[Rfam]
RNA: Rhizobiales sRNA Atu_At1
RNA sequence: GACCGGAGCGCGUCAACCGGACAUGGUGGCAUAGGGAACGGGGAUGGUUUUUCCGGUUUCCCGCCCCGGCCAACGAAACGGCAGCCGAGCCCUUAUCCCACUCCGCUCC
Numbered sequence: 001g002a003c004c005g006g007a008g009c010g011c012g013u014c015a016a017c018c019g020g021a022c023a024u025g026g027u028g029g030c031a032u033a034g035g036g037a038a039c040g041g042g043g044a045u046g047g048u049u050u051u052u053c054c055g056g057u058u059u060c061c062c063g064c065c066c067c068g069g070c071c072a073a074c075g076a077a078a079c080g081g082c083a084g085c086c087g088a089g090c091c092c093u094u095a096u097c098c099c100a101c102u103c104c105g106c107u108c109c
Base pairs, nucleotide, nucleotide: 006108007107008106009105012022013021014020025102026101027100028098029097033093034092035091036090039068040067041066042065043064046062069082070081071080